[Rfam]
RNA sequence: AAAUGAAUUAUUCGCCGAGCUUUUCUAGCUAAAUCUUUUUUUAGAAUGCUAUUUAAGCCGUGGUUAAUAGUAAUUUUGCUAUAACCACCAGGGUUAACAAGGAAACUUGUUAGCCUCCCUACAUUUGGAAAGGUGAGAUGUUAACAGACAA
Numbered sequence: 001a002a003a004u005g006a007a008u009u010a011u012u013c014g015c016c017g018a019g020c021u022u023u024u025c026u027a028g029c030u031a032a033a034u035c036u037u038u039u040u041u042u043a044g045a046a047u048g049c050u051a052u053u054u055a056a057g058c059c060g061u062g063g064u065u066a067a068u069a070g071u072a073a074u075u076u077u078g079c080u081a082u083a084a085c086c087a088c089c090a091g092g093g094u095u096a097a098c099a100a101g102g103a104a105a106c107u108u109g110u111u112a113g114c115c116u117c118c119c120u121a122c123a124u125u126u127g128g129a130a131a132g133g134u135g136a137g138a139u140g141u142u143a144a145c146a147g148a149c150a151a
Stems, first nucleotide, its partner, number of pairs: 004144001006142001011137006019058004026051004034045003060088007091116011117128002

Record summary:
This 151-nucleotide RNA sequence from Colwellia sp. PAMC 20917 belongs to the Rfam family "Molybdenum/Tungsten riboswitch aptamer (Moco RNA motif)". Gene Ontology terms of the family: tungstate binding, regulation of gene expression and molybdenum ion binding. It scores 92 bits against the family's covariance model. NCBI's taxonomy places the organism under Bacteria, Pseudomonadati, Pseudomonadota, Alteromonadales, Colwellia.